[Rfam]
RNA sequence: AAAUGUGCUCUUUUAGUAUUUCUCAAGUAGGUUUCCUCAAGGAGAAAGCCUCU
Numbered sequence: 001a002a003a004u005g006u007g008c009u010c011u012u013u014u015a016g017u018a019u020u021u022c023u024c025a026a027g028u029a030g031g032u033u034u035c036c037u038c039a040a041g042g043a044g045a046a047a048g049c050c051u052c053u
Stems, first nucleotide, its partner, number of pairs: 030050005036044003
Overview: A member of the RNA family "U7 small nuclear RNA" from Salmo salar, 53 nucleotides long. The match comes from Rfam's covariance-model search (38 bits).